Rfam assigns this 564-nucleotide part of an RNA from Plasmodium yoelii to the family "Eukaryotic large subunit ribosomal RNA".
The source organism's lineage runs through Eukaryota, Haemosporida, Plasmodium, Vinckeia and Plasmodium yoelii.
The match comes from Rfam's covariance-model search (2724 bits).
The family's consensus secondary structure is taken from published work.
Rfam links the family to the GO terms structural constituent of ribosome and ribosome.
RNA sequence: GGAAGUAGCAAUUAUUCAAAUGAGAACUUUGAAGACUGAAGUGGAGAAGGGUUUCUUGUCAACUGUGAUUGUACAAGAGUUAGCCGCUCCUAAGGGAAAGCUGAAAUGCGUUUAAAUGGGGUUCUGAUGCCGCGGGCAACCGCGACCACUCUCCCCGUCCCGAAAGGGAAACAGGUUGAUAUUCCUGUGCCGAUAGUAAUUUGGGUAUUUGAGAUGGUAACAUAUAUAUAAAUGAACUCCUUUACGUAGGUCUUACACUCGGGGUGCGUUUUCUUUGCACUUUAACUUUAUAGCCGACCUCGGAAUCAAUUUAGUUGGAGAAGAGGUUUGCUGAAUUCAAUUCGGGGCAAUCUGCUAUGAGCGGAGCAAUCCACUCUCGUAUGAUUCCCCGUUUUGAGUAAUAGUAAUUCAUUUUUAUGGAUUAUCCGAAGCCGUAAGGACUACCCUUGAAAAAAGGAGGGAACAGCAAGAAAUGGGUUUACUCAUUCCUUGUCGCCCUGAUUUACUUGUAUGAGCGUACCAACAACCGCAUCAGGUCUCCUAGGUUAACAGCCUCUGGUUAAA
Numbered sequence: 001g002g003a004a005g006u007a008g009c010a011a012u013u014a015u016u017c018a019a020a021u022g023a024g025a026a027c028u029u030u031g032a033a034g035a036c037u038g039a040a041g042u043g044g045a046g047a048a049g050g051g052u053u054u055c056u057u058g059u060c061a062a063c064u065g066u067g068a069u070u071g072u073a074c075a076a077g078a079g080u081u082a083g084c085c086g087c088u089c090c091u092a093a094g095g096g097a098a099a100g101c102u103g104a105a106a107u108g109c110g111u112u113u114a115a116a117u118g119g120g121g122u123u124c125u126g127a128u129g130c131c132g133c134g135g136g137c138a139a140c141c142g143c144g145a146c147c148a149c150u151c152u153c154c155c156c157g158u159c160c161c162g163a164a165a166g167g168g169a170a171a172c173a174g175g176u177u178g179a180u181a182u183u184c185c186u187g188u189g190c191c192g193a194u195a196g197u198a199a200u201u202u203g204g205g206u207a208u209u210u211g212a213g214a215u216g217g218u219a220a221c222a223u224a225u226a227u228a229u230a231a232a233u234g235a236a237c238u239c240c241u242u243u244a245c246g247u248a249g250g251u252c253u254u255a256c257a258c259u260c261g262g263g264g265u266g267c268g269u270u271u272u273c274u275u276u277g278c279a280c281u282u283u284a285a286c287u288u289u290a291u292a293g294c295c296g297a298c299c300u301c302g303g304a305a306u307c308a309a310u311u312u313a314g315u316u317g318g319a320g321a322a323g324a325g326g327u328u329u330g331c332u333g334a335a336u337u338c339a340a341u342u343c344g345g346g347g348c349a350a351u352c353u354g355c356u357a358u359g360a361g362c363g364g365a366g367c368a369a370u371c372c373a374c375u376c377u378c379g380u381a382u383g384a385u386u387c388c389c390c391g392u393u394u395u396g397a398g399u400a401a402u403a404g405u406a407a408u409u410c411a412u413u414u415u416u417a418u419g420g421a422u423u424a425u426c427c428g429a430a431g432c433c434g435u436a437a438g439g440a441c442u443a444c445c446c447u448u449g450a451a452a453a454a455a456g457g458a459g460g461g462a463a464c465a466g467c468a469a470g471a472a473a474u475g476g477g478u479u480u481a482c483u484c485a486u487u488c489c490u491u492g493u494c495g496c497c498c499u500g501a502u503u504u505a506c507u508u509g510u511a512u513g514a515g516c517g518u519a520c521c522a523a524c525a526a527c528c529g530c531a532u533c534a535g536g537u538c539u540c541c542u543a544g545g546u547u548a549a550c551a552g553c554c555u556c557u558g559g560u561u562a563a564a
Stems, first nucleotide, its partner, number of pairs: 015033006034561004043541004049521002054078006063071001085517003089167002094161002096112002100109002119154003171188005191513002202509005207503001214229003237459006246444004251439006259429003262282006288335002297327005306318004339418001527536002543555004